[Rfam]
The record is a 74-nucleotide RNA from Anguilla anguilla, which matches "Small nucleolar RNA SNORD47" in Rfam. Pairs were carried over by alignment from the consensus structure, which was predicted with ILM.
RNA sequence: AACCGGUGAUGAAAAGAUUCUGCCAAAUGAGACUGCUGAUUAUAAACCUUUACCGUCCCAUAAUCUCUGAGGUU
Numbered sequence: 001a002a003c004c005g006g007u008g009a010u011g012a013a014a015a016g017a018u019u020c021u022g023c024c025a026a027a028u029g030a031g032a033c034u035g036c037u038g039a040u041u042a043u044a045a046a047c048c049u050u051u052a053c054c055g056u057c058c059c060a061u062a063a064u065c066u067c068u069g070a071g072g073u074u
Base pairs, nucleotide, nucleotide: 001074002073003072004071
Gene Ontology terms of the family: nucleolus and RNA processing.
Lineage of the source: Eukaryota > Vertebrata > Teleostei > Elopocephalai > Anguilla.
The literature on the family includes a 1996 paper in Cell by Kiss-Laszlo et al., "Site-specific ribose methylation of preribosomal RNA: a novel function for small nucleolar RNAs".
It scores 65 bits against the family's covariance model.